[Rfam]
RNA sequence: AAAAAGACAAAACUGGUUUCCGUGUCCAACGUUUAACCGUCCGUCUUAUUUAAAAAAAUUUAAAAAGAUACGUCACGUAUAAAGUAUUAAUCAUAUUUUAUUAUCUAACAACAAUGAAAAUAUUAAUUAUAAAAAAAUUUCAUAUAAGACGGACAAUCAAACGUUAGCACGGGAACUCACGGUUUGCUUUUUU
Dot-bracket structure: .........................(.(((.(((.(..(((((((((((..............................................................................................)))))))))))..).))).))).)..........................

Shown here is a 193-nucleotide sequence from Oryza meridionalis, a member of the family "MIR812 microRNA precursor family". It scores 100 bits against the family's covariance model. Its family is annotated with RISC complex and miRNA-mediated post-transcriptional gene silencing in the Gene Ontology. Lineage of the source: Eukaryota > Mesangiospermae > Poaceae > Oryzinae > Oryza. Pairs were carried over by alignment from the consensus structure, which was predicted with RNAalifold.